[Rfam]
RNA sequence: AAGUAAGGUAGAGGCGCACCGCCUAUCAGUCCUCCGGAGUAGGGUGAUUCCCGUUUAUCCCGGACAAAAGGAGUCGGUGCCGAAGUGCGAAGGGCGUCAUCCCGUCGUGCUGGGGUCGUAUCGAAUAGGUCCGACACUGCCAUAGUAAUCUCUGUCAGGACGACAGCAGUGGGUUUACUAUGGAGCGCUACUGAAAGG
Dot-bracket structure: ......(((((....((((((.((........(((((.(..................).))))).......)).))))))...(((((((.(((......))).)))))))((.((((.(((.....))).)))).)).(((((((((..........................)))))))))....)))))......